[Rfam]
RNA: c-di-AMP riboswitch aptamer (ydaO/yuaA leader)
RNA sequence: ACCGGCCGAGCACCGCACCUGGGCAGGAGCGGGGGACCCGACGAACAUGGGGCCCGCGAGGGCUCCUCGGGGUGAAGCCUGCACCUGUGCAGGCCGGGCGAGAUCCGCGCCCGACCCCGACAGCUGACCCCGCAGGCGUGCGGAGAGGUCUG
Number, nucleotide and partner (000 for none) at each position: 001a000002c000003c000004g000005g137006c136007c135008g000009a000010g000011c000012a000013c026014c000015g000016c000017a000018c000019c000020u000021g000022g000023g000024c000025a000026g013027g000028a000029g133030c132031g131032g130033g129034g128035g000036a000037c000038c000039c069040g068041a000042c000043g000044a000045a000046c000047a000048u000049g000050g000051g000052g000053c000054c000055c000056g000057c000058g000059a000060g000061g000062g000063c000064u000065c000066c000067u000068c040069g039070g118071g117072g116073u000074g000075a000076a000077g000078c093079c092080u091081g090082c000083a000084c000085c000086u000087g000088u000089g000090c081091a080092g079093g078094c000095c000096g112097g111098g110099c109100g000101a000102g000103a000104u000105c000106c000107g000108c000109g099110c098111c097112c096113g000114a000115c000116c072117c071118c070119g000120a000121c000122a000123g000124c000125u000126g000127a000128c034129c033130c032131c031132g030133c029134a000135g007136g006137c005138g000139u000140g000141c000142g000143g000144a000145g000146a000147g000148g000149u000150c000151u000152g000